[Rfam]
RNA sequence: GAUGAUGACAAAACUCCGGAAUCUCUGUAUUUCUUUGAUGAAACACUUGAACCCUUUUUUCUGAUGACUGCUCUGAAAAAUAU
Numbered sequence: 001g002a003u004g005a006u007g008a009c010a011a012a013a014c015u016c017c018g019g020a021a022u023c024u025c026u027g028u029a030u031u032u033c034u035u036u037g038a039u040g041a042a043a044c045a046c047u048u049g050a051a052c053c054c055u056u057u058u059u060u061c062u063g064a065u066g067a068c069u070g071c072u073c074u075g076a077a078a079a080a081u082a083u
Stems, first nucleotide, its partner, number of pairs: 002083003006079001
The record is an 83-nucleotide sequence from Gasterosteus aculeatus, which matches "Small nucleolar RNA MBII-202" in Rfam. The family's RNA type in Rfam is C/D-box small nucleolar RNA. Pairs were carried over by alignment from the consensus structure, which was predicted with PFOLD. Taxonomically the source falls in Gasterosteus (Eukaryota, Deuterostomia, Neopterygii, Acanthomorphata). Rfam links the family to the GO terms nucleolus and RNA processing.